RNA sequence: UGCGUUUUUCGCCCAGGCGGAGCUCGGCCGCCACUUCAAGCCGUGAGGGCAUUUAUCGACCAGUACCGCCAUGCCUACGGUGUCGAGCCGAUCUGCAAGGUUAUGCAGGUCGCGCCG
Dot-bracket structure: ...............(((((.......))))).............................................(((((......((.((((((......)))))).)))))))
Numbered sequence: 001u002g003c004g005u006u007u008u009u010c011g012c013c014c015a016g017g018c019g020g021a022g023c024u025c026g027g028c029c030g031c032c033a034c035u036u037c038a039a040g041c042c043g044u045g046a047g048g049g050c051a052u053u054u055a056u057c058g059a060c061c062a063g064u065a066c067c068g069c070c071a072u073g074c075c076u077a078c079g080g081u082g083u084c085g086a087g088c089c090g091a092u093c094u095g096c097a098a099g100g101u102u103a104u105g106c107a108g109g110u111c112g113c114g115c116c117g
Stems, first nucleotide, its partner, number of pairs: 016032005078117005089112002092109006